[Rfam]
RNA sequence: UGCCGACGUCCGGCUCCACCACCGGGCAGGAGCGGGGGACCCACCACCGGGGCGAGCGUGCUCGCUCCUCGGGGUGAAGUCCUCCAGGUCGUCGCUCGCGCGGCGUCCUGCUGGGCCGGGUGUCCUCCACCCGAACCCGACAGCUCACCUCGUAGGCAUCGAGAG
Numbered sequence: 001u002g003c004c005g006a007c008g009u010c011c012g013g014c015u016c017c018a019c020c021a022c023c024g025g026g027c028a029g030g031a032g033c034g035g036g037g038g039a040c041c042c043a044c045c046a047c048c049g050g051g052g053c054g055a056g057c058g059u060g061c062u063c064g065c066u067c068c069u070c071g072g073g074g075u076g077a078a079g080u081c082c083u084c085c086a087g088g089u090c091g092u093c094g095c096u097c098g099c100g101c102g103g104c105g106u107c108c109u110g111c112u113g114g115g116c117c118g119g120g121u122g123u124c125c126u127c128c129a130c131c132c133g134a135a136c137c138c139g140a141c142a143g144c145u146c147a148c149c150u151c152g153u154a155g156g157c158a159u160c161g162a163g164a165g
Base pairs, nucleotide, nucleotide: 001158002157003156004155009030010029032153033152034151035150036149037148042071072138073137074136080115081114082113118132119131120130121129
Dot-bracket structure: ((((....((..................)).((((((....(............................)(((.....(((..............................)))..((((.......))))...))).........)))))).)))).......